[Rfam]
The record is a 93-nucleotide sequence from Dianthovirus meliloti, which matches "Dianthovirus RNA2 cap-independent translation element" in Rfam.
The base pairs follow the family's consensus structure.
By type it is a cis-regulatory element.

RNA sequence: AGAAGGAGACAAGAAUUGCGUUGGCUUCGGCGAGCGACGAAAUGGUUUAAAUACAGGCUACGAGUUCUCCUCGUAGGGUCUCUUGCCUCCGGC
Numbered sequence: 001a002g003a004a005g006g007a008g009a010c011a012a013g014a015a016u017u018g019c020g021u022u023g024g025c026u027u028c029g030g031c032g033a034g035c036g037a038c039g040a041a042a043u044g045g046u047u048u049a050a051a052u053a054c055a056g057g058c059u060a061c062g063a064g065u066u067c068u069c070c071u072c073g074u075a076g077g078g079u080c081u082c083u084u085g086c087c088u089c090c091g092g093c
Stems, first nucleotide, its partner, number of pairs: 006089003010085005016040003019036004024031002045054002058076007
Dot-bracket structure: .....(((.(((((.(((((((.((....)).)))).)))....((......))...(((((((.....)))))))....))))).)))....

Record summary:
The organism belongs to Dianthovirus meliloti, within Viruses.